RNA sequence: GGCCUCCCUCUGCGGGGCGAUUGAUCGCGGAGCCCUCUGAUUGAUCGCCCUGCAGAGGGUGGCC
Numbered sequence: 001g002g003c004c005u006c007c008c009u010c011u012g013c014g015g016g017g018c019g020a021u022u023g024a025u026c027g028c029g030g031a032g033c034c035c036u037c038u039g040a041u042u043g044a045u046c047g048c049c050c051u052g053c054a055g056a057g058g059g060u061g062g063c064c
Stems, first nucleotide, its partner, number of pairs: 001064004006059022030037002
mir-9242 microRNA precursor family: a 64-nucleotide RNA from Myotis myotis. The family's consensus secondary structure was predicted with RNAalifold.